[Rfam]
RNA: small Cajal body-specific RNA 17
Organism: Odocoileus virginianus
RNA sequence: CCCCCGGGUCCAUGAUGCAGCCCCCGGAUGAGGCCGCAGUAUUUUCCUUAUAUGAUCGGGCCCCAUGGCUGGCGGCGCCGCCGGCCCGGAGCCUGAGAGGAUUAUGAAAACGUGUCAGGCGAAAUGGGGCCAGGGACCCGGGG
Numbered sequence: 001c002c003c004c005c006g007g008g009u010c011c012a013u014g015a016u017g018c019a020g021c022c023c024c025c026g027g028a029u030g031a032g033g034c035c036g037c038a039g040u041a042u043u044u045u046c047c048u049u050a051u052a053u054g055a056u057c058g059g060g061c062c063c064c065a066u067g068g069c070u071g072g073c074g075g076c077g078c079c080g081c082c083g084g085c086c087c088g089g090a091g092c093c094u095g096a097g098a099g100g101a102u103u104a105u106g107a108a109a110a111c112g113u114g115u116c117a118g119g120c121g122a123a124a125u126g127g128g129g130c131c132a133g134g135g136a137c138c139c140g141g142g143g
Stems, first nucleotide, its partner, number of pairs: 001143003005140007013133001020130005056096006063089002068085007
Dot-bracket structure: (((.(((((((.(......(((((...............................((((((.((...(((((((....)))))))..)).)))))).............................)))))..)))))))))))